[Rfam]
RNA sequence: UGUUGUCGAUGAUGCCACUAUCAACUUACCUACCUUGUUUGAAUAUCCAAUGAGAAUAUCCUCAAACAUCUGAGACAACA
Numbered sequence: 001u002g003u004u005g006u007c008g009a010u011g012a013u014g015c016c017a018c019u020a021u022c023a024a025c026u027u028a029c030c031u032a033c034c035u036u037g038u039u040u041g042a043a044u045a046u047c048c049a050a051u052g053a054g055a056a057u058a059u060c061c062u063c064a065a066a067c068a069u070c071u072g073a074g075a076c077a078a079c080a
Base pairs, nucleotide, nucleotide: 001080002079004077005076006075007074
This 80-nucleotide sequence from Synaphobranchus kaupii belongs to the Rfam family "Small nucleolar RNA SNORD34". For this family Rfam cites "Purified box C/D snoRNPs are able to reproduce site-specific 2'-O-methylation of target RNA in vitro" (Galardi et al., Mol Cell Biol, 2002). Pairs were carried over by alignment from the consensus structure, which was predicted with PFOLD. From the family's description: snoRNA U34 is found in intron 5 of the ribosomal protein L13a gene in humans. The family is grouped with related families in Rfam's "SNORD34 clan".